[Rfam]
Shown here is a 212-nucleotide RNA sequence from Ameiurus melas, a member of the family "Small nucleolar RNA SNORA53". Rfam's curators write: The snoRNA ACA53 belongs to the H/ACA family of pseudouridylation guide snoRNAs. It scores 96 bits against the family's covariance model. Rfam 15.1 lists 1,090 matches to the family in 800 species. Pairs were carried over by alignment from the consensus structure, which was predicted with RNAalifold. The family's RNA type in Rfam is H/ACA-box small nucleolar RNA.

RNA sequence: CACACGCUCCUUAGAUCCACCUCUGGGGAGUCUUCCAGCUCAGGAGUGUCAUAGCUCCGGAGUGGGGGCUCCCAGCAGCUUUUCUGGCUGGACAGUUGGAGGUGCUUGAGUCAUUGGCGUGUGAGAGCAAUCUACCUGCUCCUUCAGCCCAGUUUCUGCCCUGGCUCCCAUAGUGGCCAUCACCAGGGUAGACAAGCUGGAGGGCGGACAAG
Numbered sequence: 001c002a003c004a005c006g007c008u009c010c011u012u013a014g015a016u017c018c019a020c021c022u023c024u025g026g027g028g029a030g031u032c033u034u035c036c037a038g039c040u041c042a043g044g045a046g047u048g049u050c051a052u053a054g055c056u057c058c059g060g061a062g063u064g065g066g067g068g069c070u071c072c073c074a075g076c077a078g079c080u081u082u083u084c085u086g087g088c089u090g091g092a093c094a095g096u097u098g099g100a101g102g103u104g105c106u107u108g109a110g111u112c113a114u115u116g117g118c119g120u121g122u123g124a125g126a127g128c129a130a131u132c133u134a135c136c137u138g139c140u141c142c143u144u145c146a147g148c149c150c151a152g153u154u155u156c157u158g159c160c161c162u163g164g165c166u167c168c169c170a171u172a173g174u175g176g177c178c179a180u181c182a183c184c185a186g187g188g189u190a191g192a193c194a195a196g197c198u199g200g201a202g203g204g205c206g207g208a209c210a211a212g
Stems, first nucleotide, its partner, number of pairs: 002122007010110005018104008026073005034066004040060002043057001076090005136207005143201001145199004155192010168176003
Dot-bracket structure: .(((((((.(((((...(((((((((((((...((((..((.(.............).))..))))..)))))..(((((.....)))))......)))))))).))))).....))))))).............(((((..(.((((......((((((((((...(((...)))......))))))))))...)))).).))))).....
Record summary
NCBI's taxonomy places the organism under Eukaryota, Actinopteri, Neopterygii, Osteoglossocephalai, Ameiurus.